[Rfam]
RNA: Xanthine riboswitch aptamer (NMT1 RNA)
RNA sequence: ACCGCGAGUAGAAGCGUUCAGCCCGGCCUGUCCCACGACGGCGCCGGUGCCCGGAAAUUGCUCAGUUC
Numbered sequence: 001a002c003c004g005c006g007a008g009u010a011g012a013a014g015c016g017u018u019c020a021g022c023c024c025g026g027c028c029u030g031u032c033c034c035a036c037g038a039c040g041g042c043g044c045c046g047g048u049g050c051c052c053g054g055a056a057a058u059u060g061c062u063c064a065g066u067u068c
Stems, first nucleotide, its partner, number of pairs: 006063005015053001018055002021050002023047004